[Rfam]
Rfam assigns this 60-nucleotide sequence from Salmo salar to the family "mir-126 microRNA precursor family". The family has 37 seed sequences and 1,407 matches in Rfam 15.1. Taxonomically the source falls in Salmo (Eukaryota, Chordata, Neopterygii, Osteoglossocephalai). The literature on the family includes a 2005 paper in Nucleic Acids Res by Altuvia et al., "Clustering and conservation patterns of human microRNAs".
RNA sequence: CAUUAUUACUUUUGGUACGCGCUCGGCCAGUCUCAAACUCGUACCGUGAGUAAUAAUGCA
Numbered sequence: 001c002a003u004u005a006u007u008a009c010u011u012u013u014g015g016u017a018c019g020c021g022c023u024c025g026g027c028c029a030g031u032c033u034c035a036a037a038c039u040c041g042u043a044c045c046g047u048g049a050g051u052a053a054u055a056a057u058g059c060a
Stems, first nucleotide, its partner, number of pairs: 001058010013046007021038001